[Rfam]
RNA sequence: GGACGAACCCUUGGAGAGAUCCACUCUGCAUAGCAGAAAAUGGACGCCGAAGGCGAAAGCAAUGAAUGCGAAACGCUCAGGCAAAAGGACAGGGGAGAAAAG
Number, nucleotide and partner (000 for none) at each position: 001g000002g000003a000004c000005g000006a000007a000008c095009c094010c093011u092012u091013g090014g000015a000016g000017a000018g000019a000020u044021c043022c042023a041024c000025u000026c000027u000028g000029c000030a000031u000032a000033g000034c000035a000036g000037a000038a000039a000040a000041u023042g022043g021044a020045c000046g082047c081048c080049g078050a077051a000052g000053g076054c075055g074056a000057a000058a000059g069060c068061a000062a000063u000064g000065a000066a000067u000068g060069c059070g000071a000072a000073a000074c055075g054076c053077u050078c049079a000080g048081g047082c046083a000084a000085a000086a000087g000088g000089a000090c013091a012092g011093g010094g009095g008096a000097g000098a000099a000100a000101a000102g000

Notes
Shown here is a 102-nucleotide RNA sequence from Glaesserella parasuis, a member of the family "Glycine riboswitch aptamer". Rfam links the family to the GO term glycine biosynthetic process.